[Rfam]
The record is a 114-nucleotide sequence from Sagittarius serpentarius, which matches "Potassium channel RNA editing signal" in Rfam.
RNA sequence: GUGGGCUAUGGGGAUAUGCGCCCUGUCACCGUGGGGGGCAAGAUUGUGGGCUCCUUGUGUGCUAUCGCGGGUGUGCUCACCAUCGCCCUGCCGGUCCCUGUCAUCGUGUCCAAC
Numbered sequence: 001g002u003g004g005g006c007u008a009u010g011g012g013g014a015u016a017u018g019c020g021c022c023c024u025g026u027c028a029c030c031g032u033g034g035g036g037g038g039c040a041a042g043a044u045u046g047u048g049g050g051c052u053c054c055u056u057g058u059g060u061g062c063u064a065u066c067g068c069g070g071g072u073g074u075g076c077u078c079a080c081c082a083u084c085g086c087c088c089u090g091c092c093g094g095u096c097c098c099u100g101u102c103a104u105c106g107u108g109u110c111c112a113a114c
Stems, first nucleotide, its partner, number of pairs: 001114002004111002007108005013102004018097001020095002037077004049063003
The family's consensus secondary structure is taken from published work. A search with the family's covariance model found it, with a score of 112 bits. Rfam links the family to the GO term adenosine to inosine editing.